Vault RNA: a 107-nucleotide sequence from Anabarilius grahami. Rfam describes the family as follows. This family of RNAs are found as part of the enigmatic vault ribonucleoprotein complex. The complex consists of a major vault protein (MVP), two minor vault proteins (VPARP and TEP1), and several small untranslated RNA molecules. It has been suggested that the vault complex is involved in drug resistance. By type it is a non-coding RNA gene. A search with the family's covariance model found it, with a score of 63 bits. The family's consensus secondary structure is taken from published work.
RNA sequence: GCGUUGGUUUAGCUCAGUGGUUACUUCAGACAUGAAAAUCUACACUCUCAUGGCCGCUGGGCAACCGGUGACUGGGGAACGAACCACGGGCUCUGUCCAACGUUUUU
Numbered sequence: 001g002c003g004u005u006g007g008u009u010u011a012g013c014u015c016a017g018u019g020g021u022u023a024c025u026u027c028a029g030a031c032a033u034g035a036a037a038a039u040c041u042a043c044a045c046u047c048u049c050a051u052g053g054c055c056g057c058u059g060g061g062c063a064a065c066c067g068g069u070g071a072c073u074g075g076g077g078a079a080c081g082a083a084c085c086a087c088g089g090g091c092u093c094u095g096u097c098c099a100a101c102g103u104u105u106u107u
Base pairs, nucleotide, nucleotide: 002102003101004100005099006098007097012091013090014089015088017087018086019085020084025083026082027081